[Rfam]
The family of this 98-nucleotide sequence from Saimiri boliviensis is "mir-544 microRNA precursor family". It scores 68 bits against the family's covariance model.
RNA sequence: AUUAUCUGUGGACCUUGUUAAAAUGCAGAUUCUGAUUCAGAAUAUCUAGGAUGGAGCCUAAGAUUAUUCAUUUUUAACAAGUUCCCAGGUGAUGCUGU
Number, nucleotide and partner (000 for none) at each position: 001a000002u000003u091004a090005u089006c000007u000008g000009u000010g084011g083012a000013c000014c081015u080016u079017g078018u077019u076020a075021a073022a072023a071024u000025g069026c000027a067028g000029a065030u000031u063032c062033u061034g000035a000036u000037u000038c000039a000040g000041a000042a000043u000044a000045u000046c000047u000048a000049g000050g000051a000052u000053g000054g000055a000056g000057c000058c000059u000060a000061a033062g032063a031064u000065u029066a000067u027068u000069c025070a000071u023072u022073u021074u000075u020076a019077a018078c017079a016080a015081g014082u000083u011084c010085c000086c000087a000088g000089g005090u004091g003092a000093u000094g000095c000096u000097g000098u000

NCBI's taxonomy places the organism under Eukaryota, Eutheria, Simiiformes, Saimiri, Saimiri boliviensis.